[Rfam]
RNA sequence: GCCGCCGAGGAGCGUUGCAACUCGAAUGAAUUCGAGCCAGGCUCGGCGUUGUGAUUUCCCUUUAUUUAACGGCGCUCACUCACG
Numbered sequence: 001g002c003c004g005c006c007g008a009g010g011a012g013c014g015u016u017g018c019a020a021c022u023c024g025a026a027u028g029a030a031u032u033c034g035a036g037c038c039a040g041g042c043u044c045g046g047c048g049u050u051g052u053g054a055u056u057u058c059c060c061u062u063u064a065u066u067u068a069a070c071g072g073c074g075c076u077c078a079c080u081c082a083c084g
Stems, first nucleotide, its partner, number of pairs: 003048006021036006

The family of this 84-nucleotide RNA from Chromatium okenii is "SAH (S-adenosyl-L-homocysteine) riboswitch aptamer". On this family, see Wang et al., Mol Cell 2008: "Riboswitches that sense S-adenosylhomocysteine and activate genes involved in coenzyme recycling". The organism belongs to Chromatium, within Bacteria.